[Rfam]
RNA sequence: UUCUAAUAAAACGUGCACACUCAUAUAAUCGCGGGGAUAUGGCCUGCAAGUUUCUACCGGAUGACCGUUAAUCAUCUGACUAUGAGUGAGCAGUGCUUUGUU
Numbered sequence: 001u002u003c004u005a006a007u008a009a010a011a012c013g014u015g016c017a018c019a020c021u022c023a024u025a026u027a028a029u030c031g032c033g034g035g036g037a038u039a040u041g042g043c044c045u046g047c048a049a050g051u052u053u054c055u056a057c058c059g060g061a062u063g064a065c066c067g068u069u070a071a072u073c074a075u076c077u078g079a080c081u082a083u084g085a086g087u088g089a090g091c092a093g094u095g096c097u098u099u100g101u102u
Base pairs, nucleotide, nucleotide: 018088019087020086021085022084023083024082025081029049031047032046033045034044035043058078059077060076061075062074063073064072
About this RNA
This 102-nucleotide sequence from Metabacillus indicus belongs to the Rfam family "Purine riboswitch aptamer". Taxonomically the source falls in Metabacillus (Bacteria, Bacilli, Caryophanales, Bacillaceae).